[Rfam]
RNA sequence: CCCGGCAAUGAAUUGCCGGGCUAUUUUCGGAUGUCCCUUCGGGACA
Numbered sequence: 001c002c003c004g005g006c007a008a009u010g011a012a013u014u015g016c017c018g019g020g021c022u023a024u025u026u027u028c029g030g031a032u033g034u035c036c037c038u039u040c041g042g043g044a045c046a
Base pairs, nucleotide, nucleotide: 001020002019003018004017005016006015007014008013033045034044035043036042037041
RNA: Acido-Lenti-1 RNA